[Rfam]
RNA sequence: UGCCUAAAUGAAAAGUAUGAAGACGACGGCACACGCCGUACUUCAUACCUCCCUGUUGGACUGGCCGAGCUUUUUGCUCGGCCUUUUUU
Numbered sequence: 001u002g003c004c005u006a007a008a009u010g011a012a013a014a015g016u017a018u019g020a021a022g023a024c025g026a027c028g029g030c031a032c033a034c035g036c037c038g039u040a041c042u043u044c045a046u047a048c049c050u051c052c053c054u055g056u057u058g059g060a061c062u063g064g065c066c067g068a069g070c071u072u073u074u075u076g077c078u079c080g081g082c083c084u085u086u087u088u089u
Stems, first nucleotide, its partner, number of pairs: 008046005063083008

Rfam assigns this 89-nucleotide sequence from Epibacterium ulvae to the family "Singlet oxygen resistance RNA X". Rfam links the family to the GO term response to photooxidative stress. The base pairs follow the family's consensus structure. Lineage of the source: Bacteria > Pseudomonadota > Rhodobacterales > Roseobacteraceae > Epibacterium. By type it is a small RNA. SorX (RSs2461)like SorY is a singlet oxygen induced sRNA that counteracts oxidative stress by targeting mRNA for a transporter in Rhodobacter.